[Rfam]
RNA sequence: AGGAAAAAAUAUGGGGUCUUUGUAGAAGCAUGCUCGUCGCGACACCUGCCAGGCCUUUUCAGGGCUGCAAUUCUAUA
Numbered sequence: 001a002g003g004a005a006a007a008a009a010u011a012u013g014g015g016g017u018c019u020u021u022g023u024a025g026a027a028g029c030a031u032g033c034u035c036g037u038c039g040c041g042a043c044a045c046c047u048g049c050c051a052g053g054c055c056u057u058u059u060c061a062g063g064g065c066u067g068c069a070a071u072u073c074u075a076u077a
Base pairs, nucleotide, nucleotide: 013046014045016043017042018041021077022076023075024074025073026072027071028040029039050067051066052065054063055062056061